RNA: tRNA
RNA sequence: CGGAAAGUAGCUCAGUUUGGCAGAGCACCGCGUUUGGGACGCGGGGGUCGCAAGUUCAAGUCUUGUCUUUCCGA
Numbered sequence: 001c002g003g004a005a006a007g008u009a010g011c012u013c014a015g016u017u018u019g020g021c022a023g024a025g026c027a028c029c030g031c032g033u034u035u036g037g038g039a040c041g042c043g044g045g046g047g048u049c050g051c052a053a054g055u056u057c058a059a060g061u062c063u064u065g066u067c068u069u070u071c072c073g074a
Stems, first nucleotide, its partner, number of pairs: 001073007010026004028044005050066005